[Rfam]
RNA sequence: ACUUCCGUCAUCUGGGGAGUAGCCAACCGCUCGAACAAGCGGACCCCUGCGUCAACAUACUCGGUCGAGAGGCCGUGGUGCAGGAGGAACGGGCCACCGUUCGGGCGAGACCAAUGACAUUGCAUCUCCGUUCGGCUGGGCGGGAUUUGCGAUGUCGUUUGUCUUGUCUGUUGCCCGGCCCG
Numbered sequence: 001a002c003u004u005c006c007g008u009c010a011u012c013u014g015g016g017g018a019g020u021a022g023c024c025a026a027c028c029g030c031u032c033g034a035a036c037a038a039g040c041g042g043a044c045c046c047c048u049g050c051g052u053c054a055a056c057a058u059a060c061u062c063g064g065u066c067g068a069g070a071g072g073c074c075g076u077g078g079u080g081c082a083g084g085a086g087g088a089a090c091g092g093g094c095c096a097c098c099g100u101u102c103g104g105g106c107g108a109g110a111c112c113a114a115u116g117a118c119a120u121u122g123c124a125u126c127u128c129c130g131u132u133c134g135g136c137u138g139g140g141c142g143g144g145a146u147u148u149g150c151g152a153u154g155u156c157g158u159u160u161g162u163c164u165u166g167u168c169u170g171u172u173g174c175c176c177g178g179c180c181c182g
Base pairs, nucleotide, nucleotide: 027042028041029040044087046084047083048082049081050080051079052078053077054076062075063074064073065072066071090182091181092180093179094178095177

Manganese Mn2+ riboswitch aptamer (yybP-ykoY): a 182-nucleotide RNA from Sphingomonas sp. KC8. Rfam 15.1 lists 1,126 matches to the family in 1,062 species. The match comes from Rfam's covariance-model search (54 bits). On this family, see Argaman et al., Curr Biol 2001: "Novel small RNA-encoding genes in the intergenic regions of Escherichia coli". This RNA was originally discovered in E. coli during a large scale screen and was named SraF. The family was later found to exist upstream of related families of protein genes in many bacteria, including the the yybP and ykoK genes in B. subtilis. Pairs were carried over by alignment from the consensus structure.